[Rfam]
RNA sequence: ACCUUCUUAUUUAAGCUCUGUGCUAAAAUUGCAGAAACUAGUAUCUGCAGUGUCUUAGUCCUUGUAAUAAAGCUGGCAGAGUAAACAAAGAGAAACACAACUGUACAAAUGGUAGAACAACCACGGGUAACUCCAAGGUGUUUUGUUCUAAGAUUUGGUACAAUCAUA
Number, nucleotide and partner (000 for none) at each position: 001a000002c000003c000004u000005u000006c000007u000008u000009a000010u000011u000012u000013a000014a000015g000016c000017u000018c081019u080020g000021u078022g077023c076024u075025a074026a000027a000028a000029u070030u069031g068032c000033a000034g062035a000036a000037a059038c058039u057040a056041g055042u000043a053044u052045c000046u000047g000048c000049a000050g000051u000052g044053u043054c000055u041056u040057a039058g038059u037060c000061c000062u034063u000064g000065u000066a000067a000068u031069a030070a029071a000072g000073c000074u025075g024076g023077c022078a021079g000080a019081g018082u000083a000084a000085a000086c000087a000088a000089a000090g000091a000092g000093a000094a000095a000096c000097a000098c000099a000100a000101c000102u162103g161104u160105a159106c158107a156108a155109a154110u000111g000112g000113u000114a000115g000116a000117a000118c000119a000120a139121c000122c137123a000124c000125g134126g133127g132128u000129a000130a000131c000132u127133c126134c125135a000136a000137g122138g000139u120140g000141u000142u000143u000144u000145g000146u000147u000148c000149u000150a000151a000152g000153a000154u109155u108156u107157g000158g106159u105160a104161c103162a102163a000164u000165c000166a000167u000168a000
This 168-nucleotide RNA sequence from Vicugna pacos belongs to the Rfam family "Small nucleolar RNA SNORA81". The organism belongs to Vicugna, within Eukaryota. The match comes from Rfam's covariance-model search (86 bits). The family's consensus secondary structure was predicted with WAR.